Shown here is a 202-nucleotide RNA from Oryza sativa, a member of the family "MIR812 microRNA precursor family". Lineage of the source: Eukaryota > Viridiplantae > Spermatophyta > Oryzeae > Oryza sativa. The family has 22 seed sequences and 57,451 matches in Rfam 15.1. Gene Ontology terms of the family: miRNA-mediated post-transcriptional gene silencing and RISC complex.
[Rfam]
RNA sequence: AAUAAGUGCAACCAUGAGUUUCUAUGGACAAUUUUAAUCGUUCGUCUUAUUUAAAAUAUUUUUCAAAAACUAAAAAACAUAAGUCAUGCAUACGUACUAUUCAUGUUUUAUAAUCUAAUAAUAGUAUAAAUACUAAUUUUAAAAAAAUUUAAAUAAGACGGACGAUCAAAACUGGACACAGAAAUUUAUGGCUAAUCUUAUU
Numbered sequence: 001a002a003u004a005a006g007u008g009c010a011a012c013c014a015u016g017a018g019u020u021u022c023u024a025u026g027g028a029c030a031a032u033u034u035u036a037a038u039c040g041u042u043c044g045u046c047u048u049a050u051u052u053a054a055a056a057u058a059u060u061u062u063u064c065a066a067a068a069a070c071u072a073a074a075a076a077a078c079a080u081a082a083g084u085c086a087u088g089c090a091u092a093c094g095u096a097c098u099a100u101u102c103a104u105g106u107u108u109u110a111u112a113a114u115c116u117a118a119u120a121a122u123a124g125u126a127u128a129a130a131u132a133c134u135a136a137u138u139u140u141a142a143a144a145a146a147a148u149u150u151a152a153a154u155a156a157g158a159c160g161g162a163c164g165a166u167c168a169a170a171a172c173u174g175g176a177c178a179c180a181g182a183a184a185u186u187u188a189u190g191g192c193u194a195a196u197c198u199u200a201u202u
Base pairs, nucleotide, nucleotide: 029174030173032171033170034169035168037166038165039164040163041162042161043160044159045158046157047156048155049154050153